[Rfam]
Overview
The family of this 85-nucleotide sequence from Copsychus sechellarum is "Small nucleolar SNORD12/SNORD106". Rfam links the family to the GO terms nucleolus and RNA processing. A reference for the family is Huttenhofer et al. (2001), "RNomics: an experimental approach that identifies 201 candidates for novel, small, non-messenger RNAs in mouse", EMBO J. Clan: SNORD12 clan.
RNA sequence: GCUGGUAGCGGUGAUGACUCUUUCCCCGUCGGAGCGACAGUGCUGACCACCGCUGUCCAAGCCAGGCCGUGUCUGAUGCCCCAGC
Numbered sequence: 001g002c003u004g005g006u007a008g009c010g011g012u013g014a015u016g017a018c019u020c021u022u023u024c025c026c027c028g029u030c031g032g033a034g035c036g037a038c039a040g041u042g043c044u045g046a047c048c049a050c051c052g053c054u055g056u057c058c059a060a061g062c063c064a065g066g067c068c069g070u071g072u073c074u075g076a077u078g079c080c081c082c083a084g085c
Stems, first nucleotide, its partner, number of pairs: 001085005008079003